[Rfam]
RNA: c-di-GMP-I riboswitch aptamer
RNA sequence: GGUAAAUAAAGGCAAACCUUUCGAAAGAUAGGGACGCAAAGCUACCGGUCUAAGGUAAUGUAUCACUACGACAGCGGAGCUACUGGG
Dot-bracket structure: ...........((...(((.((....)).)))...))..((((.((((((....((.(....).))...)))..)))))))......
Numbered sequence: 001g002g003u004a005a006a007u008a009a010a011g012g013c014a015a016a017c018c019u020u021u022c023g024a025a026a027g028a029u030a031g032g033g034a035c036g037c038a039a040a041g042c043u044a045c046c047g048g049u050c051u052a053a054g055g056u057a058a059u060g061u062a063u064c065a066c067u068a069c070g071a072c073a074g075c076g077g078a079g080c081u082a083c084u085g086g087g
Stems, first nucleotide, its partner, number of pairs: 012037002017032003021028002040081004045077003048072003055066002058063001